[Rfam]
RNA sequence: UAUUGGUAGCAUUCAAAUCAAUAUAGCAAGUUAAAAUAAGGCUUUGUCCGUCAUCAGCUUUUUUAAAGCAGCGCUGUUCUCGGCGCUUUUUUU
Number, nucleotide and partner (000 for none) at each position: 001u036002a000003u034004u033005g032006g000007u000008a000009g000010c000011a024012u023013u000014c000015a000016a000017a000018u000019c000020a000021a000022u000023a012024u011025a000026g000027c000028a000029a000030g000031u000032u005033a004034a003035a000036a001037u000038a000039a000040g049041g048042c000043u000044u000045u000046g000047u000048c041049c040050g000051u000052c000053a000054u000055c000056a000057g069058c000059u067060u066061u000062u000063u000064u000065a000066a060067a059068g000069c057070a087071g086072c085073g084074c083075u082076g081077u000078u000079c000080u000081c076082g075083g074084c073085g072086c071087u070088u000089u000090u000091u000092u000093u000

Rfam assigns this 93-nucleotide sequence from Enterococcus faecium to the family "Trans-activating crRNA". Lineage of the source: Bacteria > Bacillati > Bacilli > Enterococcus > Enterococcus faecium. It is one of the family's seed sequences. The pairing is the family consensus, mapped onto this sequence. The family's RNA type in Rfam is CRISPR RNA. Rfam describes the family as follows. RNA-guided Streptococcus pyogenes Cas9 (SpCas9) is a sequence-specific DNA endonuclease, the Trans-activating CRISPR RNA form an hybrid with the crRNA (crRNA/tracrRNA). On this family, see Jiang et al., Mol Cell 2019: "Temperature-Responsive Competitive Inhibition of CRISPR-Cas9".